[Rfam]
RNA: c-di-GMP-I riboswitch aptamer
RNA sequence: UUCAGAAAAAGGCAAACCAGGCGAAAGCCUGGGACGCAAAAGAACGGGCCUAAGUAGACAAAACUGUCUAUAUGGCAGCCGUGUGCCAGU
Numbered sequence: 001u002u003c004a005g006a007a008a009a010a011g012g013c014a015a016a017c018c019a020g021g022c023g024a025a026a027g028c029c030u031g032g033g034a035c036g037c038a039a040a041a042g043a044a045c046g047g048g049c050c051u052a053a054g055u056a057g058a059c060a061a062a063a064c065u066g067u068c069u070a071u072a073u074g075g076c077a078g079c080c081g082u083g084u085g086c087c088a089g090u
Stems, first nucleotide, its partner, number of pairs: 012037002017032006040084001043082001045081003048076003055070006